[Rfam]
RNA sequence: CAUCUGGAGAGUGGCGCUGCGUGCGUCCACCGAAGGGGAGCCUCGAUCCUGAGAUGGGCGGGCGAAACUCUCAGGUACAGGAACAGAUG
Numbered sequence: 001c002a003u004c005u006g007g008a009g010a011g012u013g014g015c016g017c018u019g020c021g022u023g024c025g026u027c028c029a030c031c032g033a034a035g036g037g038g039a040g041c042c043u044c045g046a047u048c049c050u051g052a053g054a055u056g057g058g059c060g061g062g063c064g065a066a067a068c069u070c071u072c073a074g075g076u077a078c079a080g081g082a083a084c085a086g087a088u089g
Stems, first nucleotide, its partner, number of pairs: 001089006013027004029076003032072002036070003040063004